[Rfam]
RNA sequence: UUGGGGCACAGAGUUGCAGUCGCUUGAUCUACAGGCGAUUGCGCUAAGUUGUCCCGAAAUAGUUGAUGGGUUUUUGACAUGGGUCGUCGUCUUUCAGUGAGGCUAUCCAUGUAAGAAUUCGUACAUUU
Numbered sequence: 001u002u003g004g005g006g007c008a009c010a011g012a013g014u015u016g017c018a019g020u021c022g023c024u025u026g027a028u029c030u031a032c033a034g035g036c037g038a039u040u041g042c043g044c045u046a047a048g049u050u051g052u053c054c055c056g057a058a059a060u061a062g063u064u065g066a067u068g069g070g071u072u073u074u075u076g077a078c079a080u081g082g083g084u085c086g087u088c089g090u091c092u093u094u095c096a097g098u099g100a101g102g103c104u105a106u107c108c109a110u111g112u113a114a115g116a117a118u119u120c121g122u123a124c125a126u127u128u
Base pairs, nucleotide, nucleotide: 003055004054005053006052007051008050009048012045013044014043016042017041018040021037022036023035024034025033067121068120069119070118071117072116073115074114075113076112081108082107083106084105086103087102088101
This 128-nucleotide sequence from Caenorhabditis auriculariae belongs to the Rfam family "Caenorhabditis snoRNA ceN45".
A search with the family's covariance model found it, with a score of 66 bits.
Rfam classes the family as an H/ACA-box small nucleolar RNA.
NCBI's taxonomy places the organism under Eukaryota, Protostomia, Chromadorea, Rhabditoidea, Caenorhabditis.